[Rfam]
RNA sequence: AGUGAAGGUAGAGGUGCGAACUUCAAUAGUACGUAAUUAGAAGAGUAUGAGGCUCUAGUGAUAAUUAUGGAAAGGGGAGCGUCGCCGAAGUAGGGGAAUUCUCAUAACUCCUUUGCUGGUCUUGUAUUUAAGAGAUACAAGAUUGUCAAACAGUUUUCUGUUUGGAGAGCUAUCUCACUC
Dot-bracket structure: .....((((((....((((.((((.......((((((((......................))))))))......))))..))))...(((((((((.((.....)).)))))))))(((((((((((.....))))))))))).(((((((......)))))))....)))))).....

Notes: Shown here is a 180-nucleotide RNA from Bacillus mesophilus, a member of the family "Lysine riboswitch aptamer". From the family's description: Riboswitches are metabolite binding domains within certain messenger RNAs that serve as precision sensors for their corresponding targets. Pairs were carried over by alignment from the consensus structure, which is taken from published work.